Nucleotides: 045
Base pairs, nucleotide, nucleotide: 005034006033007032008031009030010029011028012027015026017024
Number, partner (000 for none) and nucleotide at each position: 001000a002000g003000a004000a005034g006033g007032g008031c009030u010029u011028c012027c013000a014000c015026g016000a017024c018000u019000g020000c021000g022000u023000c024017g025000c026015u027012g028011g029010g030009g031008g032007c033006c034005u035000u036000u037000u038000u039000c040000u041000u042000u043000u044000g045000c
Description:
ctRNA: a 45-nucleotide RNA sequence from Paramesorhizobium endophyticum. Pairs were carried over by alignment from the consensus structure, which is taken from published work. Rfam 15.1 lists 245 matches to the family in 136 species. Rfam classes the family as an antisense RNA. A reference for the family is Venkova-Canova et al. (2004), "Two discrete elements are required for the replication of a repABC plasmid: an antisense RNA and a stem-loop structure", Mol Microbiol. This family represents a group of ctRNAs (or counter-transcribed RNAs) from p42d and related plasmids. ctRNAs are small, highly structured, antisense sequences which are involved in negative regulation.